[Rfam]
RNA sequence: CCCAGCACUGAAGUGCUGGGCUAUUAUCGGCCGUCCCUACGGGACG
Numbered sequence: 001c002c003c004a005g006c007a008c009u010g011a012a013g014u015g016c017u018g019g020g021c022u023a024u025u026a027u028c029g030g031c032c033g034u035c036c037c038u039a040c041g042g043g044a045c046g
Stems, first nucleotide, its partner, number of pairs: 001020008033045005

Source information:
This 46-nucleotide RNA from Planctomycetaceae bacterium SCGC AG-212-F19 belongs to the Rfam family "Acido-Lenti-1 RNA". By type it is a small RNA. A search with the family's covariance model found it, with a score of 56 bits.